[Rfam]
RNA sequence: UAAGCAGGUUACAAUUACAGUGCUUCCGUUUGUGGGAAUACUGACAUUAUCUUGCUGAAAGAAAUGCUGUGUUGAUGACCAUCUUUGGUUUUUGCCUUUAUGAAUCAUGACAGAUUAACAAUGCAUAUU
Numbered sequence: 001u002a003a004g005c006a007g008g009u010u011a012c013a014a015u016u017a018c019a020g021u022g023c024u025u026c027c028g029u030u031u032g033u034g035g036g037a038a039u040a041c042u043g044a045c046a047u048u049a050u051c052u053u054g055c056u057g058a059a060a061g062a063a064a065u066g067c068u069g070u071g072u073u074g075a076u077g078a079c080c081a082u083c084u085u086u087g088g089u090u091u092u093u094g095c096c097u098u099u100a101u102g103a104a105u106c107a108u109g110a111c112a113g114a115u116u117a118a119c120a121a122u123g124c125a126u127a128u129u
Stems, first nucleotide, its partner, number of pairs: 003056006018043005024037003067123001070120007086107006093100001

This 129-nucleotide RNA sequence from Chrysochloris asiatica belongs to the Rfam family "Small nucleolar RNA SNORA69". It scores 83 bits against the family's covariance model. The organism belongs to Chrysochloris, within Eukaryota.